Rfam assigns this 193-nucleotide RNA from Lysinibacillus sphaericus to the family "T-box leader".
Uncharged tRNA acts as the effector for transcription antitermination of genes in the T-box leader family.
It is annotated as a cis-regulatory leader.
RNA sequence: AUAAAUGCGUAGAAGAAGAGGAGUAGCAAGAAAUCGUACUUUUAGAGAGCUGAUGGUUGGUGUAAAUCAGCAGUAUGAACUUGUGAAUGGACUUCGGAGCAGCCUUCUAAAAGGUCGAACUAACUCCCCGUUACAGGAGUACAAGCGCGCAUUUUUGCGAAUAAAGGUGGCACCACGGUUACUCGUCCUUUUU
Numbered sequence: 001a002u003a004a005a006u007g008c009g010u011a012g013a014a015g016a017a018g019a020g021g022a023g024u025a026g027c028a029a030g031a032a033a034u035c036g037u038a039c040u041u042u043u044a045g046a047g048a049g050c051u052g053a054u055g056g057u058u059g060g061u062g063u064a065a066a067u068c069a070g071c072a073g074u075a076u077g078a079a080c081u082u083g084u085g086a087a088u089g090g091a092c093u094u095c096g097g098a099g100c101a102g103c104c105u106u107c108u109a110a111a112a113g114g115u116c117g118a119a120c121u122a123a124c125u126c127c128c129c130g131u132u133a134c135a136g137g138a139g140u141a142c143a144a145g146c147g148c149g150c151a152u153u154u155u156u157g158c159g160a161a162u163a164a165a166g167g168u169g170g171c172a173c174c175a176c177g178g179u180u181a182c183u184c185g186u187c188c189u190u191u192u193u
Stems, first nucleotide, its partner, number of pairs: 007100002015095004026084005038074003049071006103114004116130002148159004164190004175186004